[Rfam]
RNA sequence: GAUGGAUUUGAUCCAAUCCAUUAAUCAAUUUUUUACUUAUAGAUGGAUUGGAUGAAUCCAUUA
Number, nucleotide and partner (000 for none) at each position: 001g000002a000003u000004g059005g058006a057007u056008u055009u000010g000011a053012u052013c051014c050015a049016a048017u047018c046019c045020a044021u043022u042023a000024a000025u000026c000027a038028a037029u000030u000031u000032u000033u000034u000035a000036c000037u028038u027039a000040u000041a000042g022043a021044u020045g019046g018047a017048u016049u015050g014051g013052a012053u011054g000055a008056a007057u006058c005059c004060a000061u000062u000063a000
RNA: MIR5291 microRNA precursor family
Organism: Trifolium medium